Background
The family of this 50-nucleotide RNA from Salmonella enterica is "algC RNA".

RNA sequence: UGAAAAUUCUCCUUCCAGGAGAGGGCCAACUGUUGCCUGAAGAAGGGUAA
Numbered sequence: 001u002g003a004a005a006a007u008u009c010u011c012c013u014u015c016c017a018g019g020a021g022a023g024g025g026c027c028a029a030c031u032g033u034u035g036c037c038u039g040a041a042g043a044a045g046g047g048u049a050a
Stems, first nucleotide, its partner, number of pairs: 009021004
Dot-bracket structure: ........((((.....)))).............................
NCBI's taxonomy places the organism under Bacteria, Pseudomonadota, Gammaproteobacteria, Enterobacteriaceae, Salmonella enterica subsp. arizonae serovar 62:z4,z23:-.